[Rfam]
Nucleotides: 124
Stems, first nucleotide, its partner, number of pairs: 001020003008034006036107004040102008050076004055070003079091004110124005
Number, partner (000 for none) and nucleotide at each position: 001020c002019g003018g004000c005000g006000a007000g008034g009033c010032u011031u012030c013029c014000c015000u016000g017000u018003c019002c020001g021000a022000u023000a024000u025000c026000g027000a028000u029013g030012g031011g032010a033009g034008u035000a036107c037106u038105c039104a040102a041101u042100c043099a044098u045097g046096c047095u048000g049000u050076g051075g052074g053073a054000g055070g056069a057068g058000a059000g060000a061000g062000a063000g064000a065000u066000g067000u068057u069056u070055c071000a072000a073053u074052c075051c076050u077000u078000a079091g080090a081089c082088g083000c084000c085000u086000g087000u088082c089081g090080u091079c092000a093000a094000a095047a096046g097045c098044a099043u100042g101041g102040u103000g104039u105038g106037a107036g108000g109000a110124c111123g112122g113121g114120u115000u116000a117000g118000a119000u120114g121113c122112c123111c124110g
Overview:
Rfam assigns this 124-nucleotide RNA from Bacillus sp. OK048 to the family "epsC RNA". The match comes from Rfam's covariance-model search (87 bits). The source organism's lineage runs through Bacteria, Bacillati, Bacillota, Bacilli and Bacillus. The family's consensus secondary structure is taken from published work. The family's RNA type in Rfam is cis-regulatory element.